[Rfam]
RNA: Nuclear RNase P
Organism: Ramazzottius varieornatus
RNA sequence: GUUCCGAGUAAUGCUUGUCAGAGGGGUUCAACACGGACUGGCCCGUCCAGUCGGCUUCACCCUCGGGAAGGUCUGAGACUAAGGCUGUUGGUUGAUUGUUUGAUCGAGAUUCCCUAGACGGAAAUGCUUUGAGAAAAGCAGCGGCUGACCAGAAAUUCCUCUCCAACAUGCCCAUGGCAAGCGACAGGUGACAAGCCUGGAUGCCGGCUGCUGGUAGAAUUGGGAAAAGCUGUAGCCAGCUAUUCGUAGCACGAUCGACAAGGUGGCGUGCCAUAGCGCCAUAACUCAAUUCAGACUAUUCUGCUCCGAAC
Numbered sequence: 001g002u003u004c005c006g007a008g009u010a011a012u013g014c015u016u017g018u019c020a021g022a023g024g025g026g027u028u029c030a031a032c033a034c035g036g037a038c039u040g041g042c043c044c045g046u047c048c049a050g051u052c053g054g055c056u057u058c059a060c061c062c063u064c065g066g067g068a069a070g071g072u073c074u075g076a077g078a079c080u081a082a083g084g085c086u087g088u089u090g091g092u093u094g095a096u097u098g099u100u101u102g103a104u105c106g107a108g109a110u111u112c113c114c115u116a117g118a119c120g121g122a123a124a125u126g127c128u129u130u131g132a133g134a135a136a137a138g139c140a141g142c143g144g145c146u147g148a149c150c151a152g153a154a155a156u157u158c159c160u161c162u163c164c165a166a167c168a169u170g171c172c173c174a175u176g177g178c179a180a181g182c183g184a185c186a187g188g189u190g191a192c193a194a195g196c197c198u199g200g201a202u203g204c205c206g207g208c209u210g211c212u213g214g215u216a217g218a219a220u221u222g223g224g225a226a227a228a229g230c231u232g233u234a235g236c237c238a239g240c241u242a243u244u245c246g247u248a249g250c251a252c253g254a255u256c257g258a259c260a261a262g263g264u265g266g267c268g269u270g271c272c273a274u275a276g277c278g279c280c281a282u283a284a285c286u287c288a289a290u291u292c293a294g295a296c297u298a299u300u301c302u303g304c305u306c307c308g309a310a311c
Stems, first nucleotide, its partner, number of pairs: 001311004008304003015260001018257001021064005036052006073294005083237004110124002113121002125140006141233006162218002263282007